[Rfam]
RNA sequence: CGCGUCCGUCUCGUGGACGCCUGUGCCCAUCCAAGCCGACGGCGGGCUACGCUGACGCACGUGCGGCACGCCCCGCCCCCGGGGAAGCCGCAUAGCCGACAGCCGUCGCAUCCCAGGGAGCCCCUACAUG
Numbered sequence: 001c002g003c004g005u006c007c008g009u010c011u012c013g014u015g016g017a018c019g020c021c022u023g024u025g026c027c028c029a030u031c032c033a034a035g036c037c038g039a040c041g042g043c044g045g046g047c048u049a050c051g052c053u054g055a056c057g058c059a060c061g062u063g064c065g066g067c068a069c070g071c072c073c074c075g076c077c078c079c080c081g082g083g084g085a086a087g088c089c090g091c092a093u094a095g096c097c098g099a100c101a102g103c104c105g106u107c108g109c110a111u112c113c114c115a116g117g118g119a120g121c122c123c124c125u126a127c128a129u130g
Stems, first nucleotide, its partner, number of pairs: 062092004071084004095109002098107003

Overview: The family of this 130-nucleotide RNA from Streptomyces sp. NRRL B-3648 is "Streptomyces-metH RNA". It is annotated as a small RNA. NCBI's taxonomy places the organism under Bacteria, Bacillati, Actinomycetes, Kitasatosporales, Streptomyces.